[Rfam]
RNA sequence: UGGUCGGGAGCAUUCGGUGGGACGAAUGCAGGAAUAGACCGGACAGCUUCGUUUCGUAAGGGUACAUGCGCCGGCGCCCACCGGUAUAUGUG
Number, nucleotide and partner (000 for none) at each position: 001u041002g040003g039004u038005c037006g000007g000008g000009a000010g029011c028012a027013u026014u025015c024016g023017g000018u000019g000020g000021g000022a000023c016024g015025a014026a013027u012028g011029c010030a000031g000032g000033a000034a000035u000036a000037g005038a004039c003040c002041g001042g000043a000044c000045a000046g000047c000048u000049u000050c000051g000052u000053u000054u000055c000056g000057u000058a000059a000060g000061g000062g000063u092064a091065c090066a089067u088068g000069c000070g085071c084072c083073g082074g000075c000076g000077c000078c000079c000080a000081c000082c073083g072084g071085u070086a000087u000088a067089u066090g065091u064092g063
The record is a 92-nucleotide RNA from Celeribacter marinus, which matches "Rhodo-rpoB RNA" in Rfam. A search with the family's covariance model found it, with a score of 65 bits.